RNA sequence: AUUAAAAUCAGACCGUUUCGGAAUAGAAAU
Numbered sequence: 001a002u003u004a005a006a007a008u009c010a011g012a013c014c015g016u017u018u019c020g021g022a023a024u025a026g027a028a029a030u
Stems, first nucleotide, its partner, number of pairs: 013026001015024003

This 30-nucleotide RNA from Methanocaldococcus jannaschii belongs to the Rfam family "CRISPR RNA direct repeat element". Pairs were carried over by alignment from the consensus structure, which was predicted with WAR. It scores 44 bits against the family's covariance model.